[Rfam]
RNA sequence: UUGGGUUGCUGAAUUAGAGAUCGGCGCCCUUGUUAUUUACACUAUAAUCUGGAGUAUCAUCAUGUCUCUAAGUGUUGAAGCGAAAGCUAAAAUUGUUACUGAUUUCGGCCGUGAUGCC
Number, nucleotide and partner (000 for none) at each position: 001u000002u000003g000004g000005g000006u000007u026008g025009c024010u023011g022012a021013a000014u000015u000016a000017g000018a000019g000020a000021u012022c011023g010024g009025c008026g007027c000028c000029c000030u000031u000032g000033u000034u000035a000036u000037u000038u000039a000040c000041a000042c000043u000044a000045u000046a000047a000048u072049c000050u070051g069052g068053a067054g066055u000056a000057u000058c000059a000060u000061c000062a000063u000064g000065u000066c054067u053068c052069u051070a050071a000072g048073u000074g000075u000076u000077g000078a000079a000080g000081c000082g000083a000084a000085a000086g000087c000088u000089a000090a000091a000092a000093u000094u000095g000096u000097u000098a000099c000100u000101g000102a000103u000104u000105u000106c000107g000108g000109c000110c000111g000112u000113g000114a000115u000116g000117c000118c000
The family of this 118-nucleotide RNA sequence from Biostraticola tofi is "Ribosomal S15 leader". Rfam classes the family as a cis-regulatory leader. The base pairs follow the family's consensus structure, which is taken from published work. Rfam describes the family as follows. The E. coli Ribosomal S15 gene 5' UTR can form two alternative structures. One that is a series of three hairpins, The other includes a pseudoknot. Its family is annotated with regulation of translation, ncRNA-mediated in the Gene Ontology.